[Rfam]
RNA sequence: UCAACAAAAGGCAAUGGUGUCUGCCUACUCAACCGCCCUAAAAAGCUGAUGGCGCCUGCAAAUAA
Numbered sequence: 001u002c003a004a005c006a007a008a009a010g011g012c013a014a015u016g017g018u019g020u021c022u023g024c025c026u027a028c029u030c031a032a033c034c035g036c037c038c039u040a041a042a043a044a045g046c047u048g049a050u051g052g053c054g055c056c057u058g059c060a061a062a063u064a065a
Base pairs, nucleotide, nucleotide: 010025011024012023013022016056017055018054019053020052021051035046036045
RNA: Fluoride riboswitch aptamer (crcB RNA motif)